[Rfam]
The record is an 81-nucleotide RNA from Macleaya cordata, which matches "Small nucleolar RNA R160" in Rfam. The match comes from Rfam's covariance-model search (63 bits). On this family, see Chen et al., Nucleic Acids Res 2003: "The high diversity of snoRNAs in plants: identification and comparative study of 120 snoRNA genes from Oryza sativa".
RNA sequence: AGCAAAAUGAUGAGAUAACUUCUCUGAAUUUAUGUAUGAUGAAGAGCAUUACAUAAUGGUUUUCAAAGUUCUCUGAUUGCU
Numbered sequence: 001a002g003c004a005a006a007a008u009g010a011u012g013a014g015a016u017a018a019c020u021u022c023u024c025u026g027a028a029u030u031u032a033u034g035u036a037u038g039a040u041g042a043a044g045a046g047c048a049u050u051a052c053a054u055a056a057u058g059g060u061u062u063u064c065a066a067a068g069u070u071c072u073c074u075g076a077u078u079g080c081u
Stems, first nucleotide, its partner, number of pairs: 001081005
From the family's description: snoR160 is a C/D box small nucleolar RNA, which acts as a methylation guide for 25S ribosomal RNA in plants. snoR160 has been alternatively named snoZ270 in rice. The family has 9 seed sequences and 799 matches in Rfam 15.1. The family's RNA type in Rfam is C/D-box small nucleolar RNA.